Shown here is a 110-nucleotide RNA sequence from Chania multitudinisentens, a member of the family "tp2". A search with the family's covariance model found it, with a score of 76 bits. The family's consensus secondary structure was predicted with RNAalifold.
[Rfam]
RNA sequence: GGUAUUCCUUAUUUAUCUGUCUAAUGGUUUAUUUGGAGCCUGUCUUCCUGUGCUCUGCGUGAAAACACACGAAGACAGGCUCAUUAGUUUAUGCCCUUCGUCCUUCAAGC
Numbered sequence: 001g002g003u004a005u006u007c008c009u010u011a012u013u014u015a016u017c018u019g020u021c022u023a024a025u026g027g028u029u030u031a032u033u034u035g036g037a038g039c040c041u042g043u044c045u046u047c048c049u050g051u052g053c054u055c056u057g058c059g060u061g062a063a064a065a066c067a068c069a070c071g072a073a074g075a076c077a078g079g080c081u082c083a084u085u086a087g088u089u090u091a092u093g094c095c096c097u098u099c100g101u102c103c104u105u106c107a108a109g110c
Stems, first nucleotide, its partner, number of pairs: 001095004021087004036082009047071001049069003054064001056062001

About this RNA:
Taxonomically the source falls in Chania multitudinisentens (Bacteria, Pseudomonadati, Pseudomonadota, Yersiniaceae).